[Rfam]
Makes More Granules Regulator RNA (mmgR): an 80-nucleotide sequence from Brevundimonas variabilis. The match comes from Rfam's covariance-model search (66 bits). SuhB later renamed mmgR (makes more granules regulator) was a putative non-coding RNA found multiple times in the Agrobacterium tumefaciens genome and related alpha-proteobacteria. Other non-coding RNAs uncovered in the same analysis include: speF, ybhL, metA, and serC.Several studies inSinorhizobium meliloti showed that suhB element is indeed a non-coding RNA:firstly it was detected on Northern blot and called Sm8RNA, secondly in an RNAseq study referred to as SmelC689.The mutant phenotype's (strain lacking the small RNA) cytoplasm contains higher content of polyhydroxybutyrate (PBH)storage granules than wild type strain. The sRNA is required to limit the PBH intracellular accumulation when the nitrogen-fixing Sinorhizobium meliloti is under condition of surplus carbon in relation to nitrogen. It has been renamed to mmgR. Further study confirmed that mmgR fine-tunes the regulation of PBH storage.Northern blot confirmed the expression of the sRNA in other rhizobia species. Pairs were carried over by alignment from the consensus structure.

RNA sequence: GCGUCUUGCCCUUCCUGGGCGUUUCCUCCCUAUAGACUUUUAAAGCCGCGCCCUCGGGCGCGGCUCUUUUUUUGCCUGAA
Numbered sequence: 001g002c003g004u005c006u007u008g009c010c011c012u013u014c015c016u017g018g019g020c021g022u023u024u025c026c027u028c029c030c031u032a033u034a035g036a037c038u039u040u041u042a043a044a045g046c047c048g049c050g051c052c053c054u055c056g057g058g059c060g061c062g063g064c065u066c067u068u069u070u071u072u073u074g075c076c077u078g079a080a
Base pairs, nucleotide, nucleotide: 008020009019010018011017044065045064046063047062048061049060050059051058052057